[Rfam]
RNA sequence: AAUCCCGGAGGGCAAACCCGGCGAAAGCCGGGGGCGCAAAGUCACAGGUCUAAGGUUUCCCGAAGGGCUGCUACGGGAACUAUGACGGCUGGGUUGCAAGG
Numbered sequence: 001a002a003u004c005c006c007g008g009a010g011g012g013c014a015a016a017c018c019c020g021g022c023g024a025a026a027g028c029c030g031g032g033g034g035c036g037c038a039a040a041g042u043c044a045c046a047g048g049u050c051u052a053a054g055g056u057u058u059c060c061c062g063a064a065g066g067g068c069u070g071c072u073a074c075g076g077g078a079a080c081u082a083u084g085a086c087g088g089c090u091g092g093g094u095u096g097c098a099a100g101g
Base pairs, nucleotide, nucleotide: 012037013036017032018031019030020029021028022027040095041094042093043092045091046090047089048086049085050084055080056079057078058077059076060075